[Rfam]
RNA sequence: CCGUCACUGUUGCUAAUAUGCAACUCUGUUACCACAAACUGGAAUUGCACUUUAGCAAUGGUGACGG
Numbered sequence: 001c002c003g004u005c006a007c008u009g010u011u012g013c014u015a016a017u018a019u020g021c022a023a024c025u026c027u028g029u030u031a032c033c034a035c036a037a038a039c040u041g042g043a044a045u046u047g048c049a050c051u052u053u054a055g056c057a058a059u060g061g062u063g064a065c066g067g
Stems, first nucleotide, its partner, number of pairs: 005063012019049005025043004

This 67-nucleotide RNA sequence from Phyllostomus discolor belongs to the Rfam family "mir-367 microRNA precursor family". Taxonomically the source falls in Phyllostomus (Eukaryota, Eumetazoa, Gnathostomata, Amniota). Its family is annotated with RISC complex and miRNA-mediated post-transcriptional gene silencing in the Gene Ontology.